[Rfam]
RNA sequence: GCGGACCUACGGGGCCGUAUAACCAAUACGAUCAAUUGAUCGUUUAAAAACGGAAGACAGAAA
Dot-bracket structure: ((((.(((...)))))))...........(((.........)))...................
Rfam assigns this 63-nucleotide RNA sequence to the family "L2-Alphaproteobacteria ribosomal protein leader". The family's RNA type in Rfam is cis-regulatory leader. It is one of the family's seed sequences.